[Rfam]
RNA: Small nucleolar RNA SNORA74
Organism: Anseranas semipalmata
RNA sequence: GCCAGCGGCAGUCAGCCCCCGGCGCGGCGCCGUGCGCGGGGUGGUGUUACGCCGCUGGCAGAGAAGCGCGAUGCCGGCCGCCCCGCGCCGUCCUGGCGCCGGGUCUCGGCCGUGCUCUGCCUCCCUGAGAGUGGAGCGGCUCUGCGUGGAGUUGGUCCUAGGUGGGAGGCGGACAAC
Numbered sequence: 001g002c003c004a005g006c007g008g009c010a011g012u013c014a015g016c017c018c019c020c021g022g023c024g025c026g027g028c029g030c031c032g033u034g035c036g037c038g039g040g041g042u043g044g045u046g047u048u049a050c051g052c053c054g055c056u057g058g059c060a061g062a063g064a065a066g067c068g069c070g071a072u073g074c075c076g077g078c079c080g081c082c083c084c085g086c087g088c089c090g091u092c093c094u095g096g097c098g099c100c101g102g103g104u105c106u107c108g109g110c111c112g113u114g115c116u117c118u119g120c121c122u123c124c125c126u127g128a129g130a131g132u133g134g135a136g137c138g139g140c141u142c143u144g145c146g147u148g149g150a151g152u153u154g155g156u157c158c159u160a161g162g163u164g165g166g167a168g169g170c171g172g173a174c175a176a177c
Base pairs, nucleotide, nucleotide: 001059002058003057004056005055006054007053008052009051011050012049015045016044017043019041020040022037023036024035025034068115069114070113077110078109079108080105082103083102086098087097088096089095117172118171119170120169121168122167123166124165133158134157135156137154138153139152140151141150142149143148